The record is a 167-nucleotide RNA sequence from Erysipelatoclostridium sp. AM42-17, which matches "Lysine riboswitch aptamer" in Rfam.

RNA sequence: AUAAAAGAUAGAGGUGCAUGAAUCAUCAGUAUUUAAUGAUAAUGGUUGGUGACAGUUAUUAAAGAAAGGGAAACAUGCCGAAGGAAAUAGAAACACCAAUUUCUAUUUACCUGGGAGAUAAUAAAAGAUAUUAUUUCUUGUCACAUAUGUGGAGAGCUAUCAUGAAG
Numbered sequence: 001a002u003a004a005a006a007g008a009u010a011g012a013g014g015u016g017c018a019u020g021a022a023u024c025a026u027c028a029g030u031a032u033u034u035a036a037u038g039a040u041a042a043u044g045g046u047u048g049g050u051g052a053c054a055g056u057u058a059u060u061a062a063a064g065a066a067a068g069g070g071a072a073a074c075a076u077g078c079c080g081a082a083g084g085a086a087a088u089a090g091a092a093a094c095a096c097c098a099a100u101u102u103c104u105a106u107u108u109a110c111c112u113g114g115g116a117g118a119u120a121a122u123a124a125a126a127g128a129u130a131u132u133a134u135u136u137c138u139u140g141u142c143a144c145a146u147a148u149g150u151g152g153a154g155a156g157c158u159a160u161c162a163u164g165a166a167g
Base pairs, nucleotide, nucleotide: 007161008160009159010158011157016078017077018076019075020074023071024070032063033062034061035060036059037058038057039056082112083111084110086108087107090104092102093101113139114138115137116136117135118134119133120132121131122130123129141152142151143150144149

NCBI's taxonomy places the organism under Bacteria, Bacillota, Erysipelotrichia, Erysipelotrichales, Thomasclavelia.